[Rfam]
RNA sequence: UGCUCCUGUCAGUUUAGCUGGUUUGCAUCAGCUGGCUACUGUGCUGUGCAAAUCCAUGCAAAACUGACUGUGGCU
Numbered sequence: 001u002g003c004u005c006c007u008g009u010c011a012g013u014u015u016a017g018c019u020g021g022u023u024u025g026c027a028u029c030a031g032c033u034g035g036c037u038a039c040u041g042u043g044c045u046g047u048g049c050a051a052a053u054c055c056a057u058g059c060a061a062a063a064c065u066g067a068c069u070g071u072g073g074c075u
Base pairs, nucleotide, nucleotide: 003073004072006070008068009067010066011065012064013063014062015061017059018058020055021054022052023051024050025049026048027047028046030045031044032043
RNA: mir-19 microRNA precursor family
Organism: Xenopus laevis